Source information:
A member of the RNA family "Small nucleolar RNA snoR97" from Corymbia citriodora, 110 nucleotides long. For this family Rfam cites "Experimental RNomics: identification of 140 candidates for small non-messenger RNAs in the plant Arabidopsis thaliana" (Marker et al., Curr Biol, 2002). The match comes from Rfam's covariance-model search (78 bits). The base pairs follow the family's consensus structure, which was predicted with WAR. Gene Ontology terms of the family: nucleolus and RNA processing. It is annotated as an H/ACA-box small nucleolar RNA.
RNA sequence: UCUAUGUUGUGGGCAUUGGAGUCUGAAAAAACUCACAGAUCGGGCGUUGUCUAUCAGCUUCUUCUCUUGUAUAUCCCACGAGUUUGGAGUUAAAUAAUAGCACCACAUUC
Numbered sequence: 001u002c003u004a005u006g007u008u009g010u011g012g013g014c015a016u017u018g019g020a021g022u023c024u025g026a027a028a029a030a031a032c033u034c035a036c037a038g039a040u041c042g043g044g045c046g047u048u049g050u051c052u053a054u055c056a057g058c059u060u061c062u063u064c065u066c067u068u069g070u071a072u073a074u075c076c077c078a079c080g081a082g083u084u085u086g087g088a089g090u091u092a093a094a095u096a097a098u099a100g101c102a103c104c105a106c107a108u109u110c
Stems, first nucleotide, its partner, number of pairs: 043104002046101004056091006064082003